Bacterial RNase P class A: a 424-nucleotide RNA sequence from Nitrospira lenta. Gene Ontology terms of the family: ribonuclease P activity, dimeric ribonuclease P complex and tRNA processing. The base pairs follow the family's consensus structure, which is taken from published work. Taxonomically the source falls in Nitrospira (Bacteria, Nitrospirota, Nitrospiria, Nitrospiraceae).
RNA sequence: AGAGGAGACUGGGUGAUCGCUCGGCACCUUGUGUGCCGGGAGGAAAGUCCGGACUCCAUGGGCGGGGCGCUGGGUAAUUCCCAGGCGGAGCAAUCCGACACCUGCACCACAGAAAACAAACCGCCGAUGGCCAAGGCGACGGGAUCCCAUCUAGUCGCUACGGAUCAGGUAAGGGUGAAACGGCGGGGUAAGAGCCCACCGCGGGGAUGGUGACAUCGCCGGCACGGUAAGCGUCGCCCGGUGCAAGGCCAAAUAGGAAGACACGUGCGGCGUUCGCAAGGACGCGGCACAACGAUUGGCCCGGUCGAGGUCUUCGGGUAGGUCGCUCGAGGUUCGGGGUAACUCGAAUCCCAGAGAAAUGAUCACCUAGGCAUGAACUCCGGUUCGUGCGGGACAGAAUCCGGCUUAUAGGUUUCCUCGCUCG
Numbered sequence: 001a002g003a004g005g006a007g008a009c010u011g012g013g014u015g016a017u018c019g020c021u022c023g024g025c026a027c028c029u030u031g032u033g034u035g036c037c038g039g040g041a042g043g044a045a046a047g048u049c050c051g052g053a054c055u056c057c058a059u060g061g062g063c064g065g066g067g068c069g070c071u072g073g074g075u076a077a078u079u080c081c082c083a084g085g086c087g088g089a090g091c092a093a094u095c096c097g098a099c100a101c102c103u104g105c106a107c108c109a110c111a112g113a114a115a116a117c118a119a120a121c122c123g124c125c126g127a128u129g130g131c132c133a134a135g136g137c138g139a140c141g142g143g144a145u146c147c148c149a150u151c152u153a154g155u156c157g158c159u160a161c162g163g164a165u166c167a168g169g170u171a172a173g174g175g176u177g178a179a180a181c182g183g184c185g186g187g188g189u190a191a192g193a194g195c196c197c198a199c200c201g202c203g204g205g206g207a208u209g210g211u212g213a214c215a216u217c218g219c220c221g222g223c224a225c226g227g228u229a230a231g232c233g234u235c236g237c238c239c240g241g242u243g244c245a246a247g248g249c250c251a252a253a254u255a256g257g258a259a260g261a262c263a264c265g266u267g268c269g270g271c272g273u274u275c276g277c278a279a280g281g282a283c284g285c286g287g288c289a290c291a292a293c294g295a296u297u298g299g300c301c302c303g304g305u306c307g308a309g310g311u312c313u314u315c316g317g318g319u320a321g322g323u324c325g326c327u328c329g330a331g332g333u334u335c336g337g338g339g340u341a342a343c344u345c346g347a348a349u350c351c352c353a354g355a356g357a358a359a360u361g362a363u364c365a366c367c368u369a370g371g372c373a374u375g376a377a378c379u380c381c382g383g384u385u386c387g388u389g390c391g392g393g394a395c396a397g398a399a400u401c402c403g404g405c406u407u408a409u410a411g412g413u414u415u416c417c418u419c420g421c422u423c424g
Stems, first nucleotide, its partner, number of pairs: 002419009011409001012367007020040008045407003049404005054243001056241002060302004065239005070084005085099001086097004100234002104232002106228003121174002123170003128167003132163001182200002185197003201223001202221003206217004247324004257315006293307005331350008
Rfam classes the family as a ribozyme.